[Rfam]
Rfam assigns this 145-nucleotide RNA from Aspergillus novoparasiticus to the family "A. fumigatus sRNA Afu_254". A search with the family's covariance model found it, with a score of 74 bits. Lineage of the source: Eukaryota > Opisthokonta > Eurotiomycetidae > Aspergillus > Aspergillus subgen. Circumdati. The literature on the family includes a 2008 paper in Nucleic Acids Res by Jochl et al., "Small ncRNA transcriptome analysis from Aspergillus fumigatus suggests a novel mechanism for regulation of protein synthesis". Pairs were carried over by alignment from the consensus structure, which was predicted with WAR. The family has 6 seed sequences and 185 matches in Rfam 15.1. By type it is a small RNA.

RNA sequence: AUCAAAGCCUUCAAUUCAAGUUACAAAACCACUUCGAGGAACCUCUCCAAACUUUCCAACUCCAUCAAAAUGUCUCCCUGCUCUUGCAACUGCUGCAGCGGUAACUGCGCUAGCUGCUCCUGCUCCUCCUGCAGCGUAAGUAGCC
Numbered sequence: 001a002u003c004a005a006a007g008c009c010u011u012c013a014a015u016u017c018a019a020g021u022u023a024c025a026a027a028a029c030c031a032c033u034u035c036g037a038g039g040a041a042c043c044u045c046u047c048c049a050a051a052c053u054u055u056c057c058a059a060c061u062c063c064a065u066c067a068a069a070a071u072g073u074c075u076c077c078c079u080g081c082u083c084u085u086g087c088a089a090c091u092g093c094u095g096c097a098g099c100g101g102u103a104a105c106u107g108c109g110c111u112a113g114c115u116g117c118u119c120c121u122g123c124u125c126c127u128c129c130u131g132c133a134g135c136g137u138a139a140g141u142a143g144c145c
Base pairs, nucleotide, nucleotide: 079103080102081101082100086096087095088094107132108131109130116123117122